[Rfam]
RNA sequence: GUUAAAUAAGUAAAUACUCCGUAGAUAGUAGGUGCUUAGGCGUAACGGGAAACCAACCUACCGAGGAUUCCGAUAUAUGAGCGUGUAUUUGGUCUCUUCGUUUUCUGCGGAGAGACUUUUGGUUUUAAUGA
Numbered sequence: 001g002u003u004a005a006a007u008a009a010g011u012a013a014a015u016a017c018u019c020c021g022u023a024g025a026u027a028g029u030a031g032g033u034g035c036u037u038a039g040g041c042g043u044a045a046c047g048g049g050a051a052a053c054c055a056a057c058c059u060a061c062c063g064a065g066g067a068u069u070c071c072g073a074u075a076u077a078u079g080a081g082c083g084u085g086u087a088u089u090u091g092g093u094c095u096c097u098u099c100g101u102u103u104u105c106u107g108c109g110g111a112g113a114g115a116c117u118u119u120u121g122g123u124u125u126u127a128a129u130g131a
Stems, first nucleotide, its partner, number of pairs: 028061006034041002092116010
Dot-bracket structure: ...........................((((((((....))..............))))))..............................((((((((((.....))))))))))...............